[Rfam]
Group II catalytic intron D1-D4-4: a 139-nucleotide RNA from Spongiactinospora gelatinilytica. NCBI's taxonomy places the organism under Bacteria, Bacillati, Streptosporangiales, Streptosporangiaceae, Spongiactinospora. The match comes from Rfam's covariance-model search (84 bits). About the family: Group II introns are found in rRNA, tRNA and mRNA of organelles in fungi, plants and protists, and also in mRNA in bacteria. The family has 90 seed sequences and 840 matches in Rfam 15.1. On this family, see Bonen and Vogel, Trends Genet 2001: "The ins and outs of group II introns".
RNA sequence: UUGCCGGUGUGAGUCCGGUCCGGGUAGCUGCCAGGAGGUCUGGUCGCAGGCUGGCGGCUUCGUCUGGAAACGGGCGGGGUCGAAGCCCAGCUUCGAAGGCCCUGUAAAUGGGGGAGCGAUGGUGCGGUCCGUAGCAUGA
Numbered sequence: 001u002u003g004c005c006g007g008u009g010u011g012a013g014u015c016c017g018g019u020c021c022g023g024g025u026a027g028c029u030g031c032c033a034g035g036a037g038g039u040c041u042g043g044u045c046g047c048a049g050g051c052u053g054g055c056g057g058c059u060u061c062g063u064c065u066g067g068a069a070a071c072g073g074g075c076g077g078g079g080u081c082g083a084a085g086c087c088c089a090g091c092u093u094c095g096a097a098g099g100c101c102c103u104g105u106a107a108a109u110g111g112g113g114g115a116g117c118g119a120u121g122g123u124g125c126g127g128u129c130c131g132u133a134g135c136a137u138g139a
Stems, first nucleotide, its partner, number of pairs: 020043005050091005055082006064073001066071001100113004116132003